[Rfam]
RNA sequence: UGAGUCAUUAGUAGAGUGGCAUCUGGUUGGUGGUGCCCAUCUCAUAUCAGCCAGGGACAAAGUAACCCCUUGUUUAUCCCAGCGUGGUUUUUGGUCUGUGCCUAUGCCUGGUUCAUGCCUUGGUCACAUGA
Numbered sequence: 001u002g003a004g005u006c007a008u009u010a011g012u013a014g015a016g017u018g019g020c021a022u023c024u025g026g027u028u029g030g031u032g033g034u035g036c037c038c039a040u041c042u043c044a045u046a047u048c049a050g051c052c053a054g055g056g057a058c059a060a061a062g063u064a065a066c067c068c069c070u071u072g073u074u075u076a077u078c079c080c081a082g083c084g085u086g087g088u089u090u091u092u093g094g095u096c097u098g099u100g101c102c103u104a105u106g107c108c109u110g111g112u113u114c115a116u117g118c119c120u121u122g123g124u125c126a127c128a129u130g131a
Base pairs, nucleotide, nucleotide: 001053002052008049010047014043015042016041018037019036020035021034022033023032071126072125074123075122076121086119087118088117092115093114094113096111097110098109100107101106
Rfam assigns this 131-nucleotide sequence from Microcebus murinus to the family "Small nucleolar RNA SNORA48". It is annotated as an H/ACA-box small nucleolar RNA. A search with the family's covariance model found it, with a score of 123 bits. Rfam's curators write: The snoRNA ACA 48 has been identified to guide pseudouridylation of the residue U3797 in the 28S rRNA subunit. The family is grouped with related families in Rfam's "SNORA48 clan". For this family Rfam cites "Mapping to nucleotide resolution of pseudouridine residues in large subunit ribosomal RNAs from representative eukaryotes, prokaryotes, archaebacteria, mitochondria and chloroplasts" (Ofengand and Bakin, J Mol Biol, 1997).